[Rfam]
RNA sequence: GCUGCGCCUAGCCUGAGGCUGAUCCCCAAGGGCGAACACCGGGUACCUCUUACCCGGCUGGCGUGGCUCCUUAUAAGGGC
Numbered sequence: 001g002c003u004g005c006g007c008c009u010a011g012c013c014u015g016a017g018g019c020u021g022a023u024c025c026c027c028a029a030g031g032g033c034g035a036a037c038a039c040c041g042g043g044u045a046c047c048u049c050u051u052a053c054c055c056g057g058c059u060g061g062c063g064u065g066g067c068u069c070c071u072u073a074u075a076a077g078g079g080c
Stems, first nucleotide, its partner, number of pairs: 001067008011033004039057005047079005
RNA: int-alpA RNA